[Rfam]
RNA sequence: AAGAGUUUCUCCGUUCUCUAAAAUAAAAACGGAGUGGUGGAGUCAUUAUGACCCUCUUUGAGUUUCCAGUUUCUCUAAAAAACUGGUGGCGAGCCUGCUC
Numbered sequence: 001a002a003g004a005g006u007u008u009c010u011c012c013g014u015u016c017u018c019u020a021a022a023a024u025a026a027a028a029a030c031g032g033a034g035u036g037g038u039g040g041a042g043u044c045a046u047u048a049u050g051a052c053c054c055u056c057u058u059u060g061a062g063u064u065u066c067c068a069g070u071u072u073c074u075c076u077a078a079a080a081a082a083c084u085g086g087u088g089g090c091g092a093g094c095c096u097g098c099u100c
Stems, first nucleotide, its partner, number of pairs: 009034007040057001060075003066086006

Rfam assigns this 100-nucleotide RNA sequence from Synechococcus phage S-BM1 to the family "wcaG RNA". It scores 51 bits against the family's covariance model. Rfam classes the family as a cis-regulatory element.